The record is a 137-nucleotide RNA from Lihuaxuella thermophila, which matches "Ribosomal protein L20 leader" in Rfam.
RNA sequence: UCGUGCAAGAAGAAGCGCCCGCUUCUCACCUGUUCGACGCGCCAGGCAGUUGGCAGGUUGAUUGAACUCAAGUGGAUGUUCAUGUUUCAUGUCGGAAACUAAGUGUGGGCGCUUCGCGUUCACACUUUUUGUUUUUA
Numbered sequence: 001u002c003g004u005g006c007a008a009g010a011a012g013a014a015g016c017g018c019c020c021g022c023u024u025c026u027c028a029c030c031u032g033u034u035c036g037a038c039g040c041g042c043c044a045g046g047c048a049g050u051u052g053g054c055a056g057g058u059u060g061a062u063u064g065a066a067c068u069c070a071a072g073u074g075g076a077u078g079u080u081c082a083u084g085u086u087u088c089a090u091g092u093c094g095g096a097a098a099c100u101a102a103g104u105g106u107g108g109g110c111g112c113u114u115c116g117c118g119u120u121c122a123c124a125c126u127u128u129u130u131g132u133u134u135u136u137a
Stems, first nucleotide, its partner, number of pairs: 011026006028058003036051003039047002104124009
About this RNA: From the family's description: This family is a putative r-protein leader autoregulatory structure found in B. subtilis and other low-GC Gram-positive bacteria. NCBI's taxonomy places the organism under Bacteria, Bacillota, Bacilli, Caryophanales, Lihuaxuella. A reference for the family is Zengel and Lindahl (1994), "Diverse mechanisms for regulating ribosomal protein synthesis in Escherichia coli", Prog Nucleic Acid Res Mol Biol.